[Rfam]
RNA: Archaeal large subunit ribosomal RNA, nucleotides 2333 to 2914
RNA sequence: CCUCCCGUAGGGAGAGAAGACCCCGUGGAGCUUUACUGCAGCCAGAUGUUGUCCUAUGGGAGUGGGAACGUAGCGUAGGUGGGAGGCGUCGAUCCUACCCUUUCGGGGGUAGGGGAGCCGAUCCUGAAACACCACCUUCUCGCUCCCGUAGGACUUACCCUGGGUAUCCAGGGGACAGCACCUGGUGGGCAGUUCGGCUGGGGCGGCACGCGCGCGAAAAGAUAACACGCGUGCCCAAAGGUCGGCUCAAGCGGGUCAGAAACCCGCUGUAGAGUGCAAGGGCAAAAGCCGGCCUGACCGAACCCCGGAUAACAACGGGUUCGGACGGGAAACCGAGGCCUAGCGAACGCUCGUGCCCCCACUGGUGGGGGCCGGGCAUGACAGAAAAGUUACCCCGGGGAUAACGGAGUCGUCGCGGGCGAGAGCUCCCAUCGACCCCGCGGUUUGCUGCUUCGAUGUCGGCUCUUCCCAUCCUAGAGGUGCAGCAGCCUCUAAGGGUGGGGCUGCCCGCCCAUUAAAGGGGAUCGUGAGCUGGGUUUAAACCGUCGUGAGACAGGUUGGACUCUACCCACGGGAGGCGUU
Numbered sequence: 001c002c003u004c005c006c007g008u009a010g011g012g013a014g015a016g017a018a019g020a021c022c023c024c025g026u027g028g029a030g031c032u033u034u035a036c037u038g039c040a041g042c043c044a045g046a047u048g049u050u051g052u053c054c055u056a057u058g059g060g061a062g063u064g065g066g067a068a069c070g071u072a073g074c075g076u077a078g079g080u081g082g083g084a085g086g087c088g089u090c091g092a093u094c095c096u097a098c099c100c101u102u103u104c105g106g107g108g109g110u111a112g113g114g115g116a117g118c119c120g121a122u123c124c125u126g127a128a129a130c131a132c133c134a135c136c137u138u139c140u141c142g143c144u145c146c147c148g149u150a151g152g153a154c155u156u157a158c159c160c161u162g163g164g165u166a167u168c169c170a171g172g173g174g175a176c177a178g179c180a181c182c183u184g185g186u187g188g189g190c191a192g193u194u195c196g197g198c199u200g201g202g203g204c205g206g207c208a209c210g211c212g213c214g215c216g217a218a219a220a221g222a223u224a225a226c227a228c229g230c231g232u233g234c235c236c237a238a239a240g241g242u243c244g245g246c247u248c249a250a251g252c253g254g255g256u257c258a259g260a261a262a263c264c265c266g267c268u269g270u271a272g273a274g275u276g277c278a279a280g281g282g283c284a285a286a287a288g289c290c291g292g293c294c295u296g297a298c299c300g301a302a303c304c305c306c307g308g309a310u311a312a313c314a315a316c317g318g319g320u321u322c323g324g325a326c327g328g329g330a331a332a333c334c335g336a337g338g339c340c341u342a343g344c345g346a347a348c349g350c351u352c353g354u355g356c357c358c359c360c361a362c363u364g365g366u367g368g369g370g371g372c373c374g375g376g377c378a379u380g381a382c383a384g385a386a387a388a389g390u391u392a393c394c395c396c397g398g399g400g401a402u403a404a405c406g407g408a409g410u411c412g413u414c415g416c417g418g419g420c421g422a423g424a425g426c427u428c429c430c431a432u433c434g435a436c437c438c439c440g441c442g443g444u445u446u447g448c449u450g451c452u453u454c455g456a457u458g459u460c461g462g463c464u465c466u467u468c469c470c471a472u473c474c475u476a477g478a479g480g481u482g483c484a485g486c487a488g489c490c491u492c493u494a495a496g497g498g499u500g501g502g503g504c505u506g507c508c509c510g511c512c513c514a515u516u517a518a519a520g521g522g523g524a525u526c527g528u529g530a531g532c533u534g535g536g537u538u539u540a541a542a543c544c545g546u547c548g549u550g551a552g553a554c555a556g557g558u559u560g561g562a563c564u565c566u567a568c569c570c571a572c573g574g575g576a577g578g579c580g581u582u
Stems, first nucleotide, its partner, number of pairs: 001578008010570003014565002022399004027395002029391005035193004042185004047180002051154018078136005085119003097110005158173004196209001197207003210232005235338002241293006247273002250268006274283002298324008326335001328333001349377005355372001357371004408449003412446001413443007423433002460535001461533004465527001466524005473498002477492005501513004541559004545554003